mir-160 microRNA precursor family: a 90-nucleotide sequence from Coffea canephora. A reference for the family is Rhoades et al. (2002), "Prediction of plant microRNA targets", Cell. A search with the family's covariance model found it, with a score of 52 bits. The family's consensus secondary structure was predicted with PFOLD.
[Rfam]
RNA sequence: UUGUGCCUGGCUCCCUGCAUGCCACACAUUAACAGCAAUCCGGUGGCGGAUUCGCCAUGGAUGGGUGCCAUGUGGGGGAGUCAAGCAUGC
Number, nucleotide and partner (000 for none) at each position: 001u000002u089003g088004u087005g086006c085007c000008u083009g082010g081011c080012u079013c078014c077015c000016u074017g073018c072019a071020u070021g069022c000023c067024a066025c000026a000027c063028a062029u061030u000031a000032a000033c000034a000035g000036c000037a000038a000039u000040c000041c000042g000043g000044u000045g000046g000047c000048g000049g000050a000051u000052u000053c000054g000055c000056c000057a000058u000059g000060g000061a029062u028063g027064g000065g000066u024067g023068c000069c021070a020071u019072g018073u017074g016075g000076g000077g014078g013079a012080g011081u010082c009083a008084a000085g006086c005087a004088u003089g002090c000